[Rfam]
RNA sequence: AAAACCUUUAAAGCAGUCCAGAGAGGCAGCUAAGGUUAGACGGUGAAAGGGUGGAGACUACCCAUUUUUCGUGGAACCUUGCUGUUGGCAGGUUCCUUUUUUCGU
Numbered sequence: 001a002a003a004a005c006c007u008u009u010a011a012a013g014c015a016g017u018c019c020a021g022a023g024a025g026g027c028a029g030c031u032a033a034g035g036u037u038a039g040a041c042g043g044u045g046a047a048a049g050g051g052u053g054g055a056g057a058c059u060a061c062c063c064a065u066u067u068u069u070c071g072u073g074g075a076a077c078c079u080u081g082c083u084g085u086u087g088g089c090a091g092g093u094u095c096c097u098u099u100u101u102u103c104g105u
Stems, first nucleotide, its partner, number of pairs: 003037006013030002016027003043069001045067003049063005071098001073096006080090004
The record is a 105-nucleotide RNA from Streptococcus pneumoniae, which matches "PyrR binding site" in Rfam.
The sequence is in the family's curated seed alignment.
The family's consensus secondary structure is taken from published work.
By type it is a cis-regulatory element.
Taxonomically the source falls in Streptococcus (Bacteria, Bacillati, Bacilli, Lactobacillales).
Rfam describes the family as follows. This family represents the PyrR binding site and terminator structure.